[Rfam]
RNA sequence: AAUAUUGAAGAUAAAAACACAGUUUUGGUUGGUAGUCCAAACGUAUCUUAUAUGAUAUCAGUAACCUGCCCCCCCUGGGGUUGUCCAUUCUUCAUAAUAAUAUU
Numbered sequence: 001a002a003u004a005u006u007g008a009a010g011a012u013a014a015a016a017a018c019a020c021a022g023u024u025u026u027g028g029u030u031g032g033u034a035g036u037c038c039a040a041a042c043g044u045a046u047c048u049u050a051u052a053u054g055a056u057a058u059c060a061g062u063a064a065c066c067u068g069c070c071c072c073c074c075c076u077g078g079g080g081u082u083g084u085c086c087a088u089u090c091u092u093c094a095u096a097a098u099a100a101u102a103u104u
Base pairs, nucleotide, nucleotide: 006094007093008092009091010090011089022042023041025040026039027038028037043058044057045056046055047054068081069080070079071078
Rfam assigns this 104-nucleotide RNA from Vallitalea guaymasensis to the family "azaaromatic riboswitch aptamer (yjdF RNA)". The base pairs follow the family's consensus structure, which is taken from published work.